RNA sequence: GAGCGGGAUAGUUCGACGGGACGAAAAGGAGUAACUCUCUGGCUCUCUGCCCGCUCAUUUUUUUCAGAGA
Numbered sequence: 001g002a003g004c005g006g007g008a009u010a011g012u013u014c015g016a017c018g019g020g021a022c023g024a025a026a027a028g029g030a031g032u033a034a035c036u037c038u039c040u041g042g043c044u045c046u047c048u049g050c051c052c053g054c055u056c057a058u059u060u061u062u063u064u065c066a067g068a069g070a
Stems, first nucleotide, its partner, number of pairs: 001056007011022004028046005036070006
RNA: int-alpA RNA